Background
TPP riboswitch aptamer (THI element): a 99-nucleotide RNA sequence from Virgibacillus sp. SK37. NCBI's taxonomy places the organism under Bacteria, Bacillati, Bacilli, Caryophanales, Virgibacillus.

[Rfam]
RNA sequence: GUCAAUCACUAGGGGAGCACAUUGGUGCUGAGAGAAUAAAUUCGACCCUUUGAACCUGAACUGGUUAAUACUAGCGUAGGGAAGUGCAGGAGAAAGUUC
Numbered sequence: 001g002u003c004a005a006u007c008a009c010u011a012g013g014g015g016a017g018c019a020c021a022u023u024g025g026u027g028c029u030g031a032g033a034g035a036a037u038a039a040a041u042u043c044g045a046c047c048c049u050u051u052g053a054a055c056c057u058g059a060a061c062u063g064g065u066u067a068a069u070a071c072u073a074g075c076g077u078a079g080g081g082a083a084g085u086g087c088a089g090g091a092g093a094a095a096g097u098u099c
Base pairs, nucleotide, nucleotide: 007086008085009084010083011049012048013047014046017028018027019026020025035042036041055080056079057078058077061074062073063072064071